[Rfam]
Rfam assigns this 136-nucleotide RNA from Danio rerio to the family "Small nucleolar RNA SNORA13". It is annotated as an H/ACA-box small nucleolar RNA. Rfam links the family to the GO terms nucleolus and RNA processing. From the family's description: ACA13 is a member of the H/ACA class of snoRNA that guide the sites of modification of uridines to pseudouridines.

RNA sequence: UGCCUUUUAGUGUUGCCUGUUCAUCAUUGCUUGUCAGAUGAAUGUGGUGUCAAAUAGGGCAUACAUUAAUACAUGACAUGGCCACUGAAAGGUAUCUCCAUCCUUGCCUUUCAGAGGCUUCAUGUAAUGGACACUU
Numbered sequence: 001u002g003c004c005u006u007u008u009a010g011u012g013u014u015g016c017c018u019g020u021u022c023a024u025c026a027u028u029g030c031u032u033g034u035c036a037g038a039u040g041a042a043u044g045u046g047g048u049g050u051c052a053a054a055u056a057g058g059g060c061a062u063a064c065a066u067u068a069a070u071a072c073a074u075g076a077c078a079u080g081g082c083c084a085c086u087g088a089a090a091g092g093u094a095u096c097u098c099c100a101u102c103c104u105u106g107c108c109u110u111u112c113a114g115a116g117g118c119u120u121c122a123u124g125u126a127a128u129g130g131a132c133a134c135u136u
Stems, first nucleotide, its partner, number of pairs: 002060005011052002014049004018044008072129003076125006083116001085114003088110002092103001